[Rfam]
RNA sequence: AAGCCAGCCAAUGAGUCUGCUUACCUGAAUGUGUUUUUGCAAAAAUUUAGAGAAAGCUGUCAAUAGUAAAGCCAUGUUAGGAGCCUUAAAGACAUCCAAAUCAUUAAGGACCCUGAAAAUGGUUAUAAAA
Numbered sequence: 001a002a003g004c005c006a007g008c009c010a011a012u013g014a015g016u017c018u019g020c021u022u023a024c025c026u027g028a029a030u031g032u033g034u035u036u037u038u039g040c041a042a043a044a045a046u047u048u049a050g051a052g053a054a055a056g057c058u059g060u061c062a063a064u065a066g067u068a069a070a071g072c073c074a075u076g077u078u079a080g081g082a083g084c085c086u087u088a089a090a091g092a093c094a095u096c097c098a099a100a101u102c103a104u105u106a107a108g109g110a111c112c113c114u115g116a117a118a119a120u121g122g123u124u125a126u127a128a129a130a
Stems, first nucleotide, its partner, number of pairs: 003061001005059003016043001018041003071123004084109006091102002
A member of the RNA family "Small nucleolar RNA SNORA33" from Myotis davidii, 130 nucleotides long.
The match comes from Rfam's covariance-model search (121 bits).
Rfam's curators write: ACA33 is a member of the H/ACA class of snoRNA that guide the sites of modification of uridines to pseudouridines.
Gene Ontology terms of the family: RNA processing and nucleolus.